[Rfam]
RNA sequence: GACUUGAAUGUGAGAAUUGGAGGAAACUAAACCAUUUUCCUAAGUCUGUUGAAUGGUUUGGUUUCCUCCAAUGUCUUACCUUCAAGGU
Numbered sequence: 001g002a003c004u005u006g007a008a009u010g011u012g013a014g015a016a017u018u019g020g021a022g023g024a025a026a027c028u029a030a031a032c033c034a035u036u037u038u039c040c041u042a043a044g045u046c047u048g049u050u051g052a053a054u055g056g057u058u059u060g061g062u063u064u065c066c067u068c069c070a071a072u073g074u075c076u077u078a079c080c081u082u083c084a085a086g087g088u
Stems, first nucleotide, its partner, number of pairs: 004085005011078004016072006023065008032056002
This 88-nucleotide sequence from Protea cynaroides belongs to the Rfam family "MIR2275 microRNA precursor family". It scores 71 bits against the family's covariance model. NCBI's taxonomy places the organism under Eukaryota, Streptophyta, Proteales, Proteaceae, Protea. The family's consensus secondary structure was predicted with RNAalifold.